[Rfam]
RNA sequence: AGCAUUCAAAAAGCGCCAGAACUCAAGUGAAGGUCCACACAUGAUUUGAGUUGACGAGGACAGGGAGUAUCGAAAAUUCGGCGGAUGCCCUGAAAGAUAGCUGUACAAAUCCGAAAAGUGAUUUUCAAAACAAAAACAGCUUCAAUUAAAGAU
Numbered sequence: 001a002g003c004a005u006u007c008a009a010a011a012a013g014c015g016c017c018a019g020a021a022c023u024c025a026a027g028u029g030a031a032g033g034u035c036c037a038c039a040c041a042u043g044a045u046u047u048g049a050g051u052u053g054a055c056g057a058g059g060a061c062a063g064g065g066a067g068u069a070u071c072g073a074a075a076a077u078u079c080g081g082c083g084g085a086u087g088c089c090c091u092g093a094a095a096g097a098u099a100g101c102u103g104u105a106c107a108a109a110u111c112c113g114a115a116a117a118g119u120g121a122u123u124u125u126c127a128a129a130a131c132a133a134a135a136a137c138a139g140c141u142u143c144a145a146u147u148a149a150a151g152a153u
Stems, first nucleotide, its partner, number of pairs: 020052008061092005070081004099141005113126005

The family of this 153-nucleotide RNA from Acetobacterium paludosum is "glmS glucosamine-6-phosphate activated ribozyme aptamer". From the family's description: This entry contains a glucosamine-6-phosphate activated ribozyme that is found in the mRNA for GlmS. GlmS is an enzyme that uses fructose-6-phosphate and glutamine to generate glucosamine-6-phosphate. The ribozyme catalyses self cleavage of the glmS mRNA that is thought to regulate GlmS activity. The family's RNA type in Rfam is riboswitch. Pairs were carried over by alignment from the consensus structure, which is taken from published work. Taxonomically the source falls in Acetobacterium (Bacteria, Bacillati, Bacillota, Eubacteriales). Gene Ontology terms of the family: regulation of gene expression and catalytic activity. The match comes from Rfam's covariance-model search (90 bits).